mir-484 microRNA precursor family: a 63-nucleotide RNA sequence from Macaca mulatta. On this family, see Fu et al., FEBS Lett 2005: "Identification of human fetal liver miRNAs by a novel method". The sequence is in the family's curated seed alignment. Gene Ontology terms of the family: miRNA-mediated post-transcriptional gene silencing and RISC complex. The source organism's lineage runs through Eukaryota, Gnathostomata, Euarchontoglires, Cercopithecoidea and Macaca.
RNA sequence: GUCAGGCUCAGUCCCCUCCCGAUAAACCCCUAAAUAGGGACUUUCCCGGGGGGUGACCCUGGC
Numbered sequence: 001g002u003c004a005g006g007c008u009c010a011g012u013c014c015c016c017u018c019c020c021g022a023u024a025a026a027c028c029c030c031u032a033a034a035u036a037g038g039g040a041c042u043u044u045c046c047c048g049g050g051g052g053g054u055g056a057c058c059c060u061g062g063c
Base pairs, nucleotide, nucleotide: 001063002062003061005059006058008056009055011054012053013052014051015050016049017048021045022044024043025042028039029038030037031036